A member of the RNA family "DUF3800-VI RNA" from Roseospirillum parvum, 54 nucleotides long. Taxonomically the source falls in Roseospirillum (Bacteria, Alphaproteobacteria, Rhodospirillales, Rhodospirillaceae). The family's consensus secondary structure is taken from published work.
[Rfam]
RNA sequence: CGGUUGGGAGGACUGCCGUCGCAGUCCGCCGGGGGUGAUUUCCCCGCCCGGCCG
Numbered sequence: 001c002g003g004u005u006g007g008g009a010g011g012a013c014u015g016c017c018g019u020c021g022c023a024g025u026c027c028g029c030c031g032g033g034g035g036u037g038a039u040u041u042c043c044c045c046g047c048c049c050g051g052c053c054g
Stems, first nucleotide, its partner, number of pairs: 001054008010027007030046005